[Rfam]
Nucleotides: 129
Stems, first nucleotide, its partner, number of pairs: 003037006013030001015028004048079012061066001090124014
Number, partner (000 for none) and nucleotide at each position: 001000g002000c003037g004036c005035u006034u007033u008032u009000u010000a011000a012000u013030u014000g015028a016027g017026u018025c019000c020000a021000g022000a023000g024000a025018g026017a027016c028015u029000g030013a031000g032008a033007a034006g035005a036004g037003c038000a039000u040000u041000a042000a043000u044000c045000u046000g047000a048079c049078c050077u051076a052075g053074g054073a055072g056071a057070g058069c059068u060000g061066a062000a063000a064000a065000c066061u067000a068059a069058g070057c071056u072055c073054u074053u075052u076051u077050a078049g079048g080000g081000a082000a083000a084000u085000u086000u087000a088000g089000u090124g091123a092122a093121a094120c095119c096118c097117u098116c099115a100114u101113g102112u103111c104000g105000a106000a107000a108000g109000u110000a111103g112102a113101c114100a115099u116098g117097a118096g119095g120094g121093u122092u123091u124090u125000u126000u127000a128000g129000u
A member of the RNA family "PyrR binding site" from Vagococcus salmoninarum, 129 nucleotides long. For this family Rfam cites "Molecular recognition of pyr mRNA by the Bacillus subtilis attenuation regulatory protein PyrR" (Bonner et al., Nucleic Acids Res, 2001).